[Rfam]
RNA sequence: UCCGAUCAAUAGCAAACUUAUCGAAAGGUAAGGACGCAAAGCUAAAGGGCCUUUCAAUUGAAUGGUAGCCAGCUGCCGAG
Numbered sequence: 001u002c003c004g005a006u007c008a009a010u011a012g013c014a015a016a017c018u019u020a021u022c023g024a025a026a027g028g029u030a031a032g033g034a035c036g037c038a039a040a041g042c043u044a045a046a047g048g049g050c051c052u053u054u055c056a057a058u059u060g061a062a063u064g065g066u067a068g069c070c071a072g073c074u075g076c077c078g079a080g
Stems, first nucleotide, its partner, number of pairs: 012037002017032006040074004047070002049066003053062003
RNA: c-di-GMP-I riboswitch aptamer
Organism: Clostridium vincentii